Rfam assigns this 85-nucleotide sequence from Paenibacillus solanacearum to the family "c-di-GMP-I-GGC riboswitch aptamer".

[Rfam]
RNA sequence: AAUGAUAAAGGCAAACCCAUCGAAAGGUGGGGACGCAAAGCUACGGGUCUAAAGCGGGGGCGCUACGACAGCCGGGUUGCCGAAU
Numbered sequence: 001a002a003u004g005a006u007a008a009a010g011g012c013a014a015a016c017c018c019a020u021c022g023a024a025a026g027g028u029g030g031g032g033a034c035g036c037a038a039a040g041c042u043a044c045g046g047g048u049c050u051a052a053a054g055c056g057g058g059g060g061c062g063c064u065a066c067g068a069c070a071g072c073c074g075g076g077u078u079g080c081c082g083a084a085u
Stems, first nucleotide, its partner, number of pairs: 001085001003082002011036002016031006034071001039078004044074003047069003